[Rfam]
RNA sequence: UUGCAUCCAGUAGGAAUUGAACCAAUGAAUUCGCCAAUUAUGUGUUGGGCACUUUAACCAUUCAGCUAUAGAUAC
Numbered sequence: 001u002u003g004c005a006u007c008c009a010g011u012a013g014g015a016a017u018u019g020a021a022c023c024a025a026u027g028a029a030u031u032c033g034c035c036a037a038u039u040a041u042g043u044g045u046u047g048g049g050c051a052c053u054u055u056a057a058c059c060a061u062u063c064a065g066c067u068a069u070a071g072a073u074a075c
Stems, first nucleotide, its partner, number of pairs: 003075001005073003010026002013023002040069003044066006

This 75-nucleotide sequence from Actinidia chinensis belongs to the Rfam family "Plastid-ycf2 5UTR RNA". The family's RNA type in Rfam is cis-regulatory element. From the family's description: Plastid ycf2 is a non-coding RNA (ncRNA) recognised in plastids. It was found in the prime untranslated region (5UTR) of ycf2 genes, it presents a tRNA-like motif which suggests it can be involved in mRNA maturation, particularly involved in defining the precise 5' end of the transcript. A search with the family's covariance model found it, with a score of 70 bits. A reference for the family is Richter et al. (2023), "Retrograde signaling in plants: A critical review focusing on the GUN pathway and beyond", Plant Commun.